mir-46/mir-47/mir-281 microRNA precursor family: an 84-nucleotide sequence from Brachionus plicatilis. The organism belongs to Brachionus, within Eukaryota. It scores 49 bits against the family's covariance model.
[Rfam]
RNA sequence: GUUUUAAAUCGAAUGAGAGAGCAUUCCGUCGACAAUCAGUUAGAUAAUCAUUGUCAUGGAGUCGCUCUCGCAUUCGUAAAACGC
Dot-bracket structure: .............((.((.(((..((((..(((.((.............)).))).))))...))).)).))............